Rfam assigns this 102-nucleotide sequence from Paroceanicella profunda to the family "TPP riboswitch aptamer (THI element)". The match comes from Rfam's covariance-model search (65 bits).

RNA sequence: GUCACGCGACAGGGGCGCCCGCAGCAUCACGCUGCGGGCUGAGACGCACCCUUGGAACCUGACCCGGGUCAUGCCGGCGGAGGAAGUCGCUGCGUGAGCCGG
Numbered sequence: 001g002u003c004a005c006g007c008g009a010c011a012g013g014g015g016c017g018c019c020c021g022c023a024g025c026a027u028c029a030c031g032c033u034g035c036g037g038g039c040u041g042a043g044a045c046g047c048a049c050c051c052u053u054g055g056a057a058c059c060u061g062a063c064c065c066g067g068g069u070c071a072u073g074c075c076g077g078c079g080g081a082g083g084a085a086g087u088c089g090c091u092g093c094g095u096g097a098g099c100c101g102g
Stems, first nucleotide, its partner, number of pairs: 006090005011052004016046001017039009058083003064077004
Its family is annotated with thiamine pyrophosphate binding in the Gene Ontology.